[Rfam]
RNA sequence: UCCGAUGAUGGCAUGGAAUCUUUGAGACCUGAAUUCAUGUAAUUUGAUGAAAAUUACAAGCUUAAUUACUGAGGAC
Numbered sequence: 001u002c003c004g005a006u007g008a009u010g011g012c013a014u015g016g017a018a019u020c021u022u023u024g025a026g027a028c029c030u031g032a033a034u035u036c037a038u039g040u041a042a043u044u045u046g047a048u049g050a051a052a053a054u055u056a057c058a059a060g061c062u063u064a065a066u067u068a069c070u071g072a073g074g075a076c
Base pairs, nucleotide, nucleotide: 001075002074003073032045034041
This 76-nucleotide sequence from Manihot esculenta belongs to the Rfam family "Small nucleolar RNA R66". Rfam classes the family as a C/D-box small nucleolar RNA. About the family: snoR66 is a C/D box small nucleolar RNA, which acts as a methylation guide for 18S ribosomal RNA in plants. snoR66 has been alternatively named snoZ269 in rice. The base pairs follow the family's consensus structure, which was predicted with PFOLD. Rfam links the family to the GO terms nucleolus and RNA processing. A reference for the family is Chen et al. (2003), "The high diversity of snoRNAs in plants: identification and comparative study of 120 snoRNA genes from Oryza sativa", Nucleic Acids Res.